A member of the RNA family "c-di-GMP-I riboswitch aptamer" from Anaerorhabdus furcosa, 76 nucleotides long. Its Rfam clan is "c-di-GMP_I riboswitch clan". A search with the family's covariance model found it, with a score of 55 bits. Lineage of the source: Bacteria > Bacillota > Erysipelotrichia > Erysipelotrichales > Anaerorhabdus.
[Rfam]
RNA sequence: AGAUAUCAUCGGUAAACCUAUCGAAAGGUAGGGGCACAAAGCUAUAGGGCCUGUUAAAUGGUAGCCAGUUGCACAA
Numbered sequence: 001a002g003a004u005a006u007c008a009u010c011g012g013u014a015a016a017c018c019u020a021u022c023g024a025a026a027g028g029u030a031g032g033g034g035c036a037c038a039a040a041g042c043u044a045u046a047g048g049g050c051c052u053g054u055u056a057a058a059u060g061g062u063a064g065c066c067a068g069u070u071g072c073a074c075a076a
Stems, first nucleotide, its partner, number of pairs: 012037002017032006040070004047066002049062003